[Rfam]
RNA sequence: ACGACCUUACUUGAACAGGAUCUGUUCUAUAGGCUCGUACCGUUGCAUCCUUUACCAAUAAGAAGGUAAGCACUCAAGUCUGGUUGAUGCGACAUGGCUUCUGGGCCAGAGCGUGAUUAACGGGCCAGGAUGAAUCAGAUGCCGGUCAUCCGACGGCUGUAGAGGAUCGUUCCUGCCUGGUUCACUCCAGUGCAGGGUGGCCCAGAGGUUUGUCUGACAGACA
Numbered sequence: 001a002c003g004a005c006c007u008u009a010c011u012u013g014a015a016c017a018g019g020a021u022c023u024g025u026u027c028u029a030u031a032g033g034c035u036c037g038u039a040c041c042g043u044u045g046c047a048u049c050c051u052u053u054a055c056c057a058a059u060a061a062g063a064a065g066g067u068a069a070g071c072a073c074u075c076a077a078g079u080c081u082g083g084u085u086g087a088u089g090c091g092a093c094a095u096g097g098c099u100u101c102u103g104g105g106c107c108a109g110a111g112c113g114u115g116a117u118u119a120a121c122g123g124g125c126c127a128g129g130a131u132g133a134a135u136c137a138g139a140u141g142c143c144g145g146u147c148a149u150c151c152g153a154c155g156g157c158u159g160u161a162g163a164g165g166a167u168c169g170u171u172c173c174u175g176c177c178u179g180g181u182u183c184a185c186u187c188c189a190g191u192g193c194a195g196g197g198u199g200g201c202c203c204a205g206a207g208g209u210u211u212g213u214c215u216g217a218c219a220g221a222c223a
Stems, first nucleotide, its partner, number of pairs: 001038002003035001005033003013027006043069004048064001050062003078222005097209012110171004120160004125155001128151006135144001172196005177190004

The record is a 223-nucleotide sequence from Oryza nivara, which matches "Plant small nucleolar RNA U3" in Rfam. From the family's description: Small nucleolar RNAs (snoRNAs) are involved in the processing and modification of rRNA in the nucleolus. There are two main classes of snoRNAs: the box C/D class, and the box H/ACA class. Lineage of the source: Eukaryota > Magnoliopsida > Liliopsida > Petrosaviidae > Oryza. On this family, see Zwieb, Nucleic Acids Res 1997: "The uRNA database". The family's consensus secondary structure is taken from published work.